[Rfam]
RNA sequence: GCUGUACGAUGAUGAUACUUUGGCUCCCUCUACUGAUAGCUGGUGAGGAGAGCAGCCAUCCGUUACCCAACAUGGCUGAGAGUACAGC
Numbered sequence: 001g002c003u004g005u006a007c008g009a010u011g012a013u014g015a016u017a018c019u020u021u022g023g024c025u026c027c028c029u030c031u032a033c034u035g036a037u038a039g040c041u042g043g044u045g046a047g048g049a050g051a052g053c054a055g056c057c058a059u060c061c062g063u064u065a066c067c068c069a070a071c072a073u074g075g076c077u078g079a080g081a082g083u084a085c086a087g088c
Base pairs, nucleotide, nucleotide: 001088002087003086004085005084006083
The record is an 88-nucleotide RNA from Merops nubicus, which matches "Small nucleolar RNA SNORD100" in Rfam.
Pairs were carried over by alignment from the consensus structure, which was predicted with RNAalifold.
Taxonomically the source falls in Merops (Eukaryota, Opisthokonta, Sauropsida, Archosauria).
Its Rfam clan is "SNORD100 clan".
By type it is a C/D-box small nucleolar RNA.